[Rfam]
RNA sequence: CGAGUCGACUGGGCGGCCGCGGUGCUCCUGGGCAACCGGGGGAUCGAGGAACGUCCGGGCUCCACAGAGCAGGACGGUGGCUAACGGCCACCCGGGGUGACCCGCGGGACAGCGCCACAGAGAACAGACCGCCGGCCGGACAGCCAGCCGGUAAGGGUGAAACGGUGGGGUAAGAGCCCACCAGCACCGCAGGCGACUGCGGCGGCUCGGCAAACCCCGUUCGGAGCAAGACCGUACAGCAGGCGUUCGAGGGCUGCUCGCCCGAGCCUGCGGGUAGGUCGCGCGAGCCCACCGGCAACGGCGGGCCGAGAUGGAUGGCCGCCACCGCCGCGCCGGUAACGGCGGGCGGCAACAGAACCCGGCGUACAGGUCGGCUCGUCCG
Numbered sequence: 001c002g003a004g005u006c007g008a009c010u011g012g013g014c015g016g017c018c019g020c021g022g023u024g025c026u027c028c029u030g031g032g033c034a035a036c037c038g039g040g041g042g043a044u045c046g047a048g049g050a051a052c053g054u055c056c057g058g059g060c061u062c063c064a065c066a067g068a069g070c071a072g073g074a075c076g077g078u079g080g081c082u083a084a085c086g087g088c089c090a091c092c093c094g095g096g097g098u099g100a101c102c103c104g105c106g107g108g109a110c111a112g113c114g115c116c117a118c119a120g121a122g123a124a125c126a127g128a129c130c131g132c133c134g135g136c137c138g139g140a141c142a143g144c145c146a147g148c149c150g151g152u153a154a155g156g157g158u159g160a161a162a163c164g165g166u167g168g169g170g171u172a173a174g175a176g177c178c179c180a181c182c183a184g185c186a187c188c189g190c191a192g193g194c195g196a197c198u199g200c201g202g203c204g205g206c207u208c209g210g211c212a213a214a215c216c217c218c219g220u221u222c223g224g225a226g227c228a229a230g231a232c233c234g235u236a237c238a239g240c241a242g243g244c245g246u247u248c249g250a251g252g253g254c255u256g257c258u259c260g261c262c263c264g265a266g267c268c269u270g271c272g273g274g275u276a277g278g279u280c281g282c283g284c285g286a287g288c289c290c291a292c293c294g295g296c297a298a299c300g301g302c303g304g305g306c307c308g309a310g311a312u313g314g315a316u317g318g319c320c321g322c323c324a325c326c327g328c329c330g331c332g333c334c335g336g337u338a339a340c341g342g343c344g345g346g347c348g349g350c351a352a353c354a355g356a357a358c359c360c361g362g363c364g365u366a367c368a369g370g371u372c373g374g375c376u377c378g379u380c381c382g
Base pairs, nucleotide, nucleotide: 001378002377003376004375005374006373007372008371009370010369011367012323013322014321015320016319017318018317020046021045022044023043025041026040027039028038051365052364053363055362056361057360058359059358060226061225062224063223067259068258069257070256072222073221074220075219076218077091078090079089080088081087092106093104094103095102096101107217108216112215114211115210116209129156130155131152132151133150134149135148136147138145139144164182165181166180167179168178169177184206185204187202188201189200190199191198192197230280231279232278233277239271240270241269242268243267244266251263252262253261254260287306288305289304290303292301293300294299
RNA: Bacterial RNase P class A